[Rfam]
RNA sequence: CCCCUUCCCUGUUCGGCCGCGGCGCCCUAUAUCUGGGCUGUCCGGGAAACCGGACUAUGGGGAUAAACGCGCGCGUAAUAAGCGGAUCGGACCCGGGGGCGGUACCCGGCGGCUCCACCAGAAACCCUUCGUUGGGGGAAACCUGGGGCCGAAACAGGAUCGACGGACGUGUAAAGGCGAUAGCUUUCUCUCGGCAGGACGCCACCGUUAUCGGCUCAAAGCACAUAGUUGCCAACGACAACCGUGCUCCGGUCGCGCUGGCUGCGUAAGCAGUCCGCAAGACCAAUUCUGAAGUCCUUGACCUUAGCCGGUUAAGGCGGGGUUCGCAGGCACCUGGCAACAGAAGCCUGCACU
Numbered sequence: 001c002c003c004c005u006u007c008c009c010u011g012u013u014c015g016g017c018c019g020c021g022g023c024g025c026c027c028u029a030u031a032u033c034u035g036g037g038c039u040g041u042c043c044g045g046g047a048a049a050c051c052g053g054a055c056u057a058u059g060g061g062g063a064u065a066a067a068c069g070c071g072c073g074c075g076u077a078a079u080a081a082g083c084g085g086a087u088c089g090g091a092c093c094c095g096g097g098g099g100c101g102g103u104a105c106c107c108g109g110c111g112g113c114u115c116c117a118c119c120a121g122a123a124a125c126c127c128u129u130c131g132u133u134g135g136g137g138g139a140a141a142c143c144u145g146g147g148g149c150c151g152a153a154a155c156a157g158g159a160u161c162g163a164c165g166g167a168c169g170u171g172u173a174a175a176g177g178c179g180a181u182a183g184c185u186u187u188c189u190c191u192c193g194g195c196a197g198g199a200c201g202c203c204a205c206c207g208u209u210a211u212c213g214g215c216u217c218a219a220a221g222c223a224c225a226u227a228g229u230u231g232c233c234a235a236c237g238a239c240a241a242c243c244g245u246g247c248u249c250c251g252g253u254c255g256c257g258c259u260g261g262c263u264g265c266g267u268a269a270g271c272a273g274u275c276c277g278c279a280a281g282a283c284c285a286a287u288u289c290u291g292a293a294g295u296c297c298u299u300g301a302c303c304u305u306a307g308c309c310g311g312u313u314a315a316g317g318c319g320g321g322g323u324u325c326g327c328a329g330g331c332a333c334c335u336g337g338c339a340a341c342a343g344a345a346g347c348c349u350g351c352a353c354u
Base pairs, nucleotide, nucleotide: 040055041054042053043052044051059191060190061189062188063187069184070183072179073178074177083169084168087166088165089164093109094108095107096106097105110151111150112149113148114147115146116145192207193206194205198217199216201215202214203213320335321334322333323332326351327350328349329348330347331346
The family of this 354-nucleotide RNA sequence from Amaricoccus sp. HAR-UPW-R2A-40 is "Alphaproteobacteria transfer-messenger RNA".
The base pairs follow the family's consensus structure, which is taken from published work.
Bacterial tmRNA, also known as 10Sa RNA or SsrA, is named for its dual tRNA and mRNA-like properties. Its role is to liberate the mRNA from a stalled ribosome. To accomplish this part of the tmRNA is used as a reading frame that ends in a translation stop signal. The broken mRNA is replaced in the ribosome by the tmRNA and translation of the tmRNA leads to addition of a proteolysis tag to the incomplete protein enabling recognition by a protease.
Rfam links the family to the GO term RNA catabolic process.